This 101-nucleotide sequence from Peribacillus cavernae belongs to the Rfam family "Purine riboswitch aptamer". About the family: Riboswitches are metabolite binding domains within certain messenger RNAs that serve as precision sensors for their corresponding targets. Allosteric rearrangement of mRNA structure is mediated by ligand binding, and this results in modulation of gene expression. Rfam links the family to the GO term purine nucleobase biosynthetic process. The base pairs follow the family's consensus structure, which is taken from published work. It scores 80 bits against the family's covariance model.
[Rfam]
RNA sequence: GGUAGUGAAAAGGAAUUCUCUCAUAUAAUCCUGGGGAUAUGGCCCGAAGUUUCUACCCAAUAACCGUAAAUUGUUGGACUAUGAGAGAAAGUAGAUACUUC
Numbered sequence: 001g002g003u004a005g006u007g008a009a010a011a012g013g014a015a016u017u018c019u020c021u022c023a024u025a026u027a028a029u030c031c032u033g034g035g036g037a038u039a040u041g042g043c044c045c046g047a048a049g050u051u052u053c054u055a056c057c058c059a060a061u062a063a064c065c066g067u068a069a070a071u072u073g074u075u076g077g078a079c080u081a082u083g084a085g086a087g088a089a090a091g092u093a094g095a096u097a098c099u100u101c
Stems, first nucleotide, its partner, number of pairs: 018087008029048001031046001033045003057077007